[Rfam]
RNA sequence: UGGCGCCCAAUGUGGGGCUCCAGCACGGGGGAUCCAGUGAAGGACGCCGUUCGGAGUGGCCAGCAAAGGAAAGCAAAGGAAAAUAAAAGAAAAGAAAAGAGGGAACGACGUGGGAACCUGCUCCGUCUGUACCCCUCGGGCAAGUGAACGGCGAUUAUGGGUCAAGCAUUGAGCCAAGAUAAGAUGUUCAUUGAAGGACUAAAAAAGGCUAUCAAGGCACGAGGAGUAAAGGUGAAAAUUAAGCAUUUGUGUCAGUAUUUUGAUUAUAUUAAAGAAGUUUGUCCUU
Number, nucleotide and partner (000 for none) at each position: 001u000002g000003g000004c000005g000006c031007c030008c029009a000010a000011u000012g026013u025014g024015g000016g000017g000018c000019u000020c000021c000022a000023g000024c014025a013026c012027g000028g000029g008030g007031g006032a000033u000034c000035c000036a000037g000038u000039g000040a000041a000042g000043g000044a000045c000046g000047c000048c000049g000050u000051u000052c000053g000054g000055a000056g000057u000058g000059g000060c000061c000062a000063g000064c000065a000066a000067a000068g000069g000070a000071a000072a000073g000074c000075a000076a000077a000078g000079g000080a000081a000082a000083a000084u000085a000086a000087a000088a000089g000090a000091a000092a000093a000094g000095a000096a000097a000098a000099g137100a136101g134102g133103g000104a000105a000106c129107g000108a000109c125110g124111u000112g122113g121114g000115a000116a000117c000118c000119u000120g000121c113122u112123c000124c110125g109126u000127c000128u000129g106130u000131a000132c000133c102134c101135c000136u100137c099138g000139g000140g000141c000142a000143a000144g000145u164146g163147a162148a000149c161150g000151g000152c159153g158154a000155u000156u000157a000158u153159g152160g000161g149162u147163c146164a145165a000166g000167c000168a000169u000170u000171g212172a000173g209174c208175c207176a000177a000178g000179a000180u000181a000182a000183g000184a000185u000186g000187u000188u000189c000190a000191u000192u000193g000194a000195a000196g000197g000198a000199c000200u000201a000202a000203a000204a000205a000206a000207g175208g174209c173210u000211a000212u171213c000214a000215a000216g000217g000218c000219a000220c262221g261222a260223g259224g258225a000226g256227u255228a000229a000230a248231g247232g246233u245234g244235a000236a000237a000238a000239u000240u000241a000242a000243g000244c234245a233246u232247u231248u230249g000250u000251g000252u000253c000254a000255g227256u226257a000258u224259u223260u222261u221262g220263a000264u000265u000266a000267u000268a000269u000270u000271a286272a285273a000274g283275a282276a000277g000278u000279u000280u000281g000282u275283c274284c000285u272286u271

The record is a 286-nucleotide RNA sequence from Molossus molossus, which matches "Mason-Pfizer monkey virus packaging signal" in Rfam. The organism belongs to Molossus, within Eukaryota. From the family's description: This family represents a group of sequences that are related to the Mason-Pfizer monkey virus (MPMV) packaging signal. It is annotated as a cis-regulatory element.